[Rfam]
RNA sequence: UGACCCUUCUAAGCCGAGGGUCACCUAGCCAACUGACGUUGUUAGUGAAUUUGAUUGUUCACACUUUUCAGCCAACCUCCCAUAUUCGAGGUUGGCUUUUUUUUG
Numbered sequence: 001u002g003a004c005c006c007u008u009c010u011a012a013g014c015c016g017a018g019g020g021u022c023a024c025c026u027a028g029c030c031a032a033c034u035g036a037c038g039u040u041g042u043u044a045g046u047g048a049a050u051u052u053g054a055u056u057g058u059u060c061a062c063a064c065u066u067u068u069c070a071g072c073c074a075a076c077c078u079c080c081c082a083u084a085u086u087c088g089a090g091g092u093u094g095g096c097u098u099u100u101u102u103u104u105g
Base pairs, nucleotide, nucleotide: 001023002022003021004020005019006018041069045062046061047060048059049058050057072095073094074093075092076091077090078089079088
Qrr RNA: a 105-nucleotide RNA sequence from Vibrio viridaestus.
For this family Rfam cites "The Small RNA Chaperone Hfq and Multiple Small RNAs Control Quorum Sensing in Vibrio harveyi and Vibrio cholerae" (Lenz et al., Cell, 2004).
The family has 30 seed sequences and 148 matches in Rfam 15.1.
The match comes from Rfam's covariance-model search (94 bits).
This family represents a set of small RNAs (the Qrr RNAs) that are thought to be involved in the regulation of quorum sensing in Vibrio species. It is believed that these RNAs, guided by a protein, Hfq, can mediate the destabilisation of the quorum-sensing master regulators LuxR/HapR mRNAs.